[Rfam]
RNA sequence: AACCUAAACUUGGCAACAGGCAUGGUUUUAAGUCCUUGUAAGCAACAAGCUCGUCCUAGAGUCUUACAAGGCCGUGGUCCGAAAGGAUCAUGGGAGCCGAAAGGUUCC
Numbered sequence: 001a002a003c004c005u006a007a008a009c010u011u012g013g014c015a016a017c018a019g020g021c022a023u024g025g026u027u028u029u030a031a032g033u034c035c036u037u038g039u040a041a042g043c044a045a046c047a048a049g050c051u052c053g054u055c056c057u058a059g060a061g062u063c064u065u066a067c068a069a070g071g072c073c074g075u076g077g078u079c080c081g082a083a084a085g086g087a088u089c090a091u092g093g094g095a096g097c098c099g100a101a102a103g104g105u106u107c108c
Stems, first nucleotide, its partner, number of pairs: 001027004009020004034071009049062004073092008093108006